[Rfam]
RNA sequence: AUCUGGAAAGAGGCGCGGCCGACCCGGAGCAUAUCGGGCGACCUCGUCCGCCGACGGGAUAACACUCUCAGGCACCAAGACAGAU
Numbered sequence: 001a002u003c004u005g006g007a008a009a010g011a012g013g014c015g016c017g018g019c020c021g022a023c024c025c026g027g028a029g030c031a032u033a034u035c036g037g038g039c040g041a042c043c044u045c046g047u048c049c050g051c052c053g054a055c056g057g058g059a060u061a062a063c064a065c066u067c068u069c070a071g072g073c074a075c076c077a078a079g080a081c082a083g084a085u
Stems, first nucleotide, its partner, number of pairs: 001085005012048004050073003053069002057067002
Glycine riboswitch aptamer: an 85-nucleotide RNA sequence from Rhodovulum sp. PH10. NCBI's taxonomy places the organism under Bacteria, Alphaproteobacteria, Rhodobacterales, Paracoccaceae, Rhodovulum. About the family: This family represents the bacterial glycine riboswitch. The pairing is the family consensus, mapped onto this sequence.